[Rfam]
RNA sequence: AAGUAAAUAGGCGAUGACGUUCGCCAGUGGUGCUGUAUUUAACAGCACUUCAAAUAUUACACUCCGUAAUUGAUGACGUCUGCAAUAUU
Dot-bracket structure: .........[[[[..((((((]]]]..............................((((.......))))....)))))).........
Numbered sequence: 001a002a003g004u005a006a007a008u009a010g011g012c013g014a015u016g017a018c019g020u021u022c023g024c025c026a027g028u029g030g031u032g033c034u035g036u037a038u039u040u041a042a043c044a045g046c047a048c049u050u051c052a053a054a055u056a057u058u059a060c061a062c063u064c065c066g067u068a069a070u071u072g073a074u075g076a077c078g079u080c081u082g083c084a085a086u087a088u089u
Stems, first nucleotide, its partner, number of pairs: 010025004016080006056070004